[Rfam]
RNA sequence: UCACUCUGGAAAGCGGCGCACACGCGCCCGCCGACGGGGCAAGCGGAGCUGCGGCGCCGCGGAAACUCUCAGGCCUAUGACAGAGCGGGAGGA
Numbered sequence: 001u002c003a004c005u006c007u008g009g010a011a012a013g014c015g016g017c018g019c020a021c022a023c024g025c026g027c028c029c030g031c032c033g034a035c036g037g038g039g040c041a042a043g044c045g046g047a048g049c050u051g052c053g054g055c056g057c058c059g060c061g062g063a064a065a066c067u068c069u070c071a072g073g074c075c076u077a078u079g080a081c082a083g084a085g086c087g088g089g090a091g092g093a
Stems, first nucleotide, its partner, number of pairs: 001088002004085005015028004030074003033070002037068003044061002